[Rfam]
RNA sequence: UAUUUAGGAUUCUAGGGUUCCAGCCUGCAAAGGUGAUCGGACCGAGAGUUUCCGCCCUGCCGCGCAGGGUACACGGAGGGAUAAAAGCCCGGGAGAU
Numbered sequence: 001u002a003u004u005u006a007g008g009a010u011u012c013u014a015g016g017g018u019u020c021c022a023g024c025c026u027g028c029a030a031a032g033g034u035g036a037u038c039g040g041a042c043c044g045a046g047a048g049u050u051u052c053c054g055c056c057c058u059g060c061c062g063c064g065c066a067g068g069g070u071a072c073a074c075g076g077a078g079g080g081a082u083a084a085a086a087g088c089c090c091g092g093g094a095g096a097u
Base pairs, nucleotide, nucleotide: 007053008052009051012048015043016042020040021039022037023034024033025032026031054070055069056068057067058066059065060064072092074095078090079089080088
The record is a 97-nucleotide RNA sequence from Acidithiobacillus ferrianus, which matches "Guanidine-I riboswitch aptamer" in Rfam. Rfam links the family to the GO term regulation of gene expression. NCBI's taxonomy places the organism under Bacteria, Pseudomonadota, Acidithiobacillia, Acidithiobacillales, Acidithiobacillus.